Overview:
This 98-nucleotide RNA from Enhydra lutris belongs to the Rfam family "mir-658 microRNA precursor family". Pairs were carried over by alignment from the consensus structure, which was predicted with RNAalifold. Gene Ontology terms of the family: RISC complex and miRNA-mediated post-transcriptional gene silencing. Lineage of the source: Eukaryota > Opisthokonta > Metazoa > Dipnotetrapodomorpha > Enhydra lutris.
RNA sequence: GCUCGGUUGCCGUGGUUGCAGGCCGGACCCGCCCGCCCGCCCGCUGACAGCGAGGCUUAGGGCGGAGGAAGCGGGUCGUUGGUCGGUCGGGAACGAGG
Number, nucleotide and partner (000 for none) at each position: 001g000002c097003u096004c095005g094006g000007u093008u092009g000010c090011c089012g088013u085014g084015g083016u082017u000018g079019c078020a000021g077022g076023c075024c074025g072026g000027a000028c000029c068030c067031g000032c000033c065034c064035g063036c062037c061038c000039g056040c054041c000042c052043g051044c050045u049046g000047a000048c000049a045050g044051c043052g042053a000054g040055g000056c039057u000058u000059a000060g000061g037062g036063c035064g034065g033066a000067g030068g029069a000070a000071g000072c025073g000074g024075g023076u022077c021078g019079u018080u000081g000082g016083u015084c014085g013086g000087u000088c012089g011090g010091g000092a008093a007094c005095g004096a003097g002098g000